RNA sequence: GUGCUGAUGUAGAAGCAGUCAGGAGCGUGGCAUGCCCGCGCUCCGGGUCAUUGCUCAGCCG
Numbered sequence: 001g002u003g004c005u006g007a008u009g010u011a012g013a014a015g016c017a018g019u020c021a022g023g024a025g026c027g028u029g030g031c032a033u034g035c036c037c038g039c040g041c042u043c044c045g046g047g048u049c050a051u052u053g054c055u056c057a058g059c060c061g
Base pairs, nucleotide, nucleotide: 005057006056007055009054010053011052016046020047022044023043024042025041026040027039028038029037030036
RNA: Xanthine riboswitch aptamer (NMT1 RNA)
Organism: Natronospirillum operosum